This 252-nucleotide sequence from Streptomyces showdoensis belongs to the Rfam family "Streptomyces sRNA 4677". Rfam's curators write: Located in the intergenic region between anti-sigma factor SCO4677 gene and a putative regulatory protein gene SCO4676. scr4677 expression requires the SCO4677 activity and scr4677 sRNA itself seem to affect the levels of the SCO4676-associated transcripts. A reference for the family is Hindra et al. (2014), "Complex intra-operonic dynamics mediated by a small RNA in Streptomyces coelicolor", PLoS One. The base pairs follow the family's consensus structure.
[Rfam]
RNA sequence: GGCUCCGGUGGCUCGGGUGGUCUUUCCAAGCAACGACGAGAGAGAAAGAACCUUCACCAAGCCCCACCCCUCCCGCCCCUGAUCGGGGCGCUCACUCAUGCGGGUGAAGAACACCAACUCCGCUGGAUUCCGACCCGGUUGCCUGCUUUACGCUCGGCUCGACCGGCAUAUGACAGCAGACAUACGUCGGCCCUCGCCGGGACGGCAAUCCCGAUGCGAGGGCCUGACCACGAGGAAGCAGAGACCUUCCCC
Numbered sequence: 001g002g003c004u005c006c007g008g009u010g011g012c013u014c015g016g017g018u019g020g021u022c023u024u025u026c027c028a029a030g031c032a033a034c035g036a037c038g039a040g041a042g043a044g045a046a047a048g049a050a051c052c053u054u055c056a057c058c059a060a061g062c063c064c065c066a067c068c069c070c071u072c073c074c075g076c077c078c079c080u081g082a083u084c085g086g087g088g089c090g091c092u093c094a095c096u097c098a099u100g101c102g103g104g105u106g107a108a109g110a111a112c113a114c115c116a117a118c119u120c121c122g123c124u125g126g127a128u129u130c131c132g133a134c135c136c137g138g139u140u141g142c143c144u145g146c147u148u149u150a151c152g153c154u155c156g157g158c159u160c161g162a163c164c165g166g167c168a169u170a171u172g173a174c175a176g177c178a179g180a181c182a183u184a185c186g187u188c189g190g191c192c193c194u195c196g197c198c199g200g201g202a203c204g205g206c207a208a209u210c211c212c213g214a215u216g217c218g219a220g221g222g223c224c225u226g227a228c229c230a231c232g233a234g235g236a237a238g239c240a241g242a243g244a245c246c247u248u249c250c251c252c
Base pairs, nucleotide, nucleotide: 008231009230010229016077017076018075019074092107093106094105095104096103097102122158123157124156125155126154189224190223191222192221193220195218196217197216199212200211201210202209234250235249236248237247238246